Shown here is a 59-nucleotide sequence, a member of the family "Streptococcus sRNA SpF59 (ldcC RNA)".
It is annotated as a small RNA.
A reference for the family is Mann et al. (2012), "Control of virulence by small RNAs in Streptococcus pneumoniae", PLoS Pathog.
[Rfam]
RNA sequence: UGACCACUUCGAUUUCUUAUGAAGUUAAGACCCAGACGGACAGGCGGGUCAGCUGCCGA
Numbered sequence: 001u002g003a004c005c006a007c008u009u010c011g012a013u014u015u016c017u018u019a020u021g022a023a024g025u026u027a028a029g030a031c032c033c034a035g036a037c038g039g040a041c042a043g044g045c046g047g048g049u050c051a052g053c054u055g056c057c058g059a
Base pairs, nucleotide, nucleotide: 001051002050003049004048005047006025007024008023009022010021011020
Dot-bracket structure: (((((((((((........)))))).....................)))))........